[Rfam]
The record is a 64-nucleotide RNA sequence from Microcaecilia unicolor, which matches "Selenocysteine insertion sequence 1" in Rfam.
About the family: The incorporation of selenocysteine into a protein sequence is directed by an in-frame UGA codon (usually a stop codon) within the coding region of the mRNA. Selenoprotein mRNAs contain a conserved secondary structure in the 3' UTR that is required for the distinction of UGA stop from UGA selenocysteine.
The literature on the family includes a 1996 paper in RNA by Walczak et al., "A novel RNA structural motif in the selenocysteine insertion element of eukaryotic selenoprotein mRNAs".
Rfam 15.1 lists 3,793 matches to the family in 721 species.
A search with the family's covariance model found it, with a score of 42 bits.

RNA sequence: UUUGCAUCAAUGAUGGCAGAAGCAUAAACUAUAACCUAGGGGCUUCUGUUUGAUAUUUUGCAAU
Numbered sequence: 001u002u003u004g005c006a007u008c009a010a011u012g013a014u015g016g017c018a019g020a021a022g023c024a025u026a027a028a029c030u031a032u033a034a035c036c037u038a039g040g041g042g043c044u045u046c047u048g049u050u051u052g053a054u055a056u057u058u059u060g061c062a063a064u
Stems, first nucleotide, its partner, number of pairs: 002063004015050009029039003